The record is a 46-nucleotide RNA sequence from Lentisphaera araneosa, which matches "Acido-Lenti-1 RNA" in Rfam. It is one of the family's seed sequences. The family's consensus secondary structure is taken from published work.
RNA sequence: CCUAGUUCUGACGAACCAGGCUCAGUUAUGCCGUGCUUUCAGCACG
Numbered sequence: 001c002c003u004a005g006u007u008c009u010g011a012c013g014a015a016c017c018a019g020g021c022u023c024a025g026u027u028a029u030g031c032c033g034u035g036c037u038u039u040c041a042g043c044a045c046g
Stems, first nucleotide, its partner, number of pairs: 001020003005016004033045005
Dot-bracket structure: (((.((((....)))).)))............(((((...))))).